Shown here is a 140-nucleotide RNA sequence from Macaca mulatta, a member of the family "Small Cajal body specific RNA 21". Pairs were carried over by alignment from the consensus structure, which was predicted with RNAalifold. The source organism's lineage runs through Eukaryota, Sarcopterygii, Tetrapoda, Simiiformes and Macaca. Its family is annotated with nucleolus, RNA processing and Cajal body in the Gene Ontology. It is one of the family's seed sequences. The family's RNA type in Rfam is small Cajal body RNA. scaRNAs are a specific class of small nuclear RNAs which localise to the Cajal bodies and guide the modification of RNA polymerase II transcribed spliceosomal RNAs U1, U2, U4, U5 and U12. ACA68 (SCARNA21) is a member of the H/ACA class of snoRNAs that guide the sites of modification of uridines to pseudouridines. This snoRNA was identified by computational screening and its expression in mouse experimentally verified by Northern blot and primer extension analysis. ACA68 is proposed to guide the pseudouridylation of residue U19 in U12 snRNA. Rfam 15.1 lists 278 matches to the family in 138 species.
[Rfam]
RNA sequence: UGGCUUGAUUUCCUGGGGGGGUGGUCUCAGCCCACCCCACCUCCCCUCAGCCGAGCCUAGAGUAGAGGGGCCAGGCAUUCUCCCCAGGGGAGAGGUGUUGAAGCAAGGAACCUCUCCUGGGCUGUCCUAGCCUCACAUUU
Dot-bracket structure: .((((((........(((((((((............)))))))))......)))))).........(((((.(((...(((.....((((....................))))....)))....))).)))))......
Numbered sequence: 001u002g003g004c005u006u007g008a009u010u011u012c013c014u015g016g017g018g019g020g021g022u023g024g025u026c027u028c029a030g031c032c033c034a035c036c037c038c039a040c041c042u043c044c045c046c047u048c049a050g051c052c053g054a055g056c057c058u059a060g061a062g063u064a065g066a067g068g069g070g071c072c073a074g075g076c077a078u079u080c081u082c083c084c085c086a087g088g089g090g091a092g093a094g095g096u097g098u099u100g101a102a103g104c105a106a107g108g109a110a111c112c113u114c115u116c117c118u119g120g121g122c123u124g125u126c127c128u129a130g131c132c133u134c135a136c137a138u139u140u
Stems, first nucleotide, its partner, number of pairs: 002057006016045009067134005073128003079121003087114004